[Rfam]
RNA sequence: UAAUACAUUGACUGUAAGUCGCUCUGGAUAAGAGCUUCUGCUAAAUAACUAAAA
Numbered sequence: 001u002a003a004u005a006c007a008u009u010g011a012c013u014g015u016a017a018g019u020c021g022c023u024c025u026g027g028a029u030a031a032g033a034g035c036u037u038c039u040g041c042u043a044a045a046u047a048a049c050u051a052a053a054a
Stems, first nucleotide, its partner, number of pairs: 013043001014041003021035005
Shown here is a 54-nucleotide sequence from Salmo salar, a member of the family "UnaL2 LINE 3' element". The base pairs follow the family's consensus structure, which is taken from published work. Lineage of the source: Eukaryota > Vertebrata > Teleostomi > Neopterygii > Salmo. It scores 57 bits against the family's covariance model.